[Rfam]
RNA sequence: UAGAAUAAUGUAGGUAAGGGAAGUCGGCAAACUAGAUCCGUAACUUCGGGAAAAGGAUUGGCUCCAGUGGUUGGAACGGUUGGCCAGUUGGUUGAUGCUUGUCCGGCGCAGUUCUGUCUGCUUGAUACUUUCGGGUUGAUGGCGGACUAGUGAUUGUGCUUGCUUGCGGACGCUUUCUGGUGUGUGCUUGGACCUCGGUUCUAGUAUCCUGAUCGCUCAUCUAAACAACCGUACUGGAACCGGUACGGACUCAGGGAAUCCGACUGUCUAAUUAAAACAGAGGUGACAGAUGGUCCUUGCGGACGUUGACUGUCACUGAUUUCUGCCCAGUGCUCUGAAUGUUAAAUCGUAGUAAUUCGAGUAAGCGCGGGUAAACGGCGGGAGUAACUAUGACUCUCUUAAGGUAGCCAAAUGCCUCGUCAUUUAAUUGUUGACGCGCAUGAAUGGAUUAACGAGAUUCCUACUGUCCCUAACUACUUUCUAGCGAAACCACAGCCAAGGGAACGGGCUUGGCAAA
Numbered sequence: 001u002a003g004a005a006u007a008a009u010g011u012a013g014g015u016a017a018g019g020g021a022a023g024u025c026g027g028c029a030a031a032c033u034a035g036a037u038c039c040g041u042a043a044c045u046u047c048g049g050g051a052a053a054a055g056g057a058u059u060g061g062c063u064c065c066a067g068u069g070g071u072u073g074g075a076a077c078g079g080u081u082g083g084c085c086a087g088u089u090g091g092u093u094g095a096u097g098c099u100u101g102u103c104c105g106g107c108g109c110a111g112u113u114c115u116g117u118c119u120g121c122u123u124g125a126u127a128c129u130u131u132c133g134g135g136u137u138g139a140u141g142g143c144g145g146a147c148u149a150g151u152g153a154u155u156g157u158g159c160u161u162g163c164u165u166g167c168g169g170a171c172g173c174u175u176u177c178u179g180g181u182g183u184g185u186g187c188u189u190g191g192a193c194c195u196c197g198g199u200u201c202u203a204g205u206a207u208c209c210u211g212a213u214c215g216c217u218c219a220u221c222u223a224a225a226c227a228a229c230c231g232u233a234c235u236g237g238a239a240c241c242g243g244u245a246c247g248g249a250c251u252c253a254g255g256g257a258a259u260c261c262g263a264c265u266g267u268c269u270a271a272u273u274a275a276a277a278c279a280g281a282g283g284u285g286a287c288a289g290a291u292g293g294u295c296c297u298u299g300c301g302g303a304c305g306u307u308g309a310c311u312g313u314c315a316c317u318g319a320u321u322u323c324u325g326c327c328c329a330g331u332g333c334u335c336u337g338a339a340u341g342u343u344a345a346a347u348c349g350u351a352g353u354a355a356u357u358c359g360a361g362u363a364a365g366c367g368c369g370g371g372u373a374a375a376c377g378g379c380g381g382g383a384g385u386a387a388c389u390a391u392g393a394c395u396c397u398c399u400u401a402a403g404g405u406a407g408c409c410a411a412a413u414g415c416c417u418c419g420u421c422a423u424u425u426a427a428u429u430g431u432u433g434a435c436g437c438g439c440a441u442g443a444a445u446g447g448a449u450u451a452a453c454g455a456g457a458u459u460c461c462u463a464c465u466g467u468c469c470c471u472a473a474c475u476a477c478u479u480u481c482u483a484g485c486g487a488a489a490c491c492a493c494a495g496c497c498a499a500g501g502g503a504a505c506g507g508g509c510u511u512g513g514c515a516a517a
Stems, first nucleotide, its partner, number of pairs: 001483004010477004015472002018469003035059005044049001060241002063238006069230005075217001077215007084180003090174002097167002103162001105160008113150001116147006122139005128133001242246001254462007261454002265279003282317008293304004321448003325379003330376002332372004337368001340367003347360003351356001380398006399403001419435004424430001496513005
Overview: This 517-nucleotide part of an RNA from Caenorhabditis elegans belongs to the Rfam family "Eukaryotic large subunit ribosomal RNA". Rfam links the family to the GO terms structural constituent of ribosome and ribosome. Rfam's curators put it in the seed alignment. Pairs were carried over by alignment from the consensus structure, which is taken from published work. The organism belongs to Caenorhabditis, within Eukaryota.